[Rfam]
RNA: small nucleolar RNA snoR137
RNA sequence: GUUGCUUCUUAUGGUGAACUCCCUGUAAAUUUUGUUGGGUUGGGGAUGUUCAAGUUUCCGAAGCAUAGAUCAAAUUGCCAGUAUUAAACAGCAUCAUGCAUACUUUUUGGUUGCACUGUGUUACCUGUCUCCUGGUACGUAU
Numbered sequence: 001g002u003u004g005c006u007u008c009u010u011a012u013g014g015u016g017a018a019c020u021c022c023c024u025g026u027a028a029a030u031u032u033u034g035u036u037g038g039g040u041u042g043g044g045g046a047u048g049u050u051c052a053a054g055u056u057u058c059c060g061a062a063g064c065a066u067a068g069a070u071c072a073a074a075u076u077g078c079c080a081g082u083a084u085u086a087a088a089c090a091g092c093a094u095c096a097u098g099c100a101u102a103c104u105u106u107u108u109g110g111u112u113g114c115a116c117u118g119u120g121u122u123a124c125c126u127g128u129c130u131c132c133u134g135g136u137a138c139g140u141a142u
Stems, first nucleotide, its partner, number of pairs: 003065006015052005020046005077136005083130001090122003094118001097115002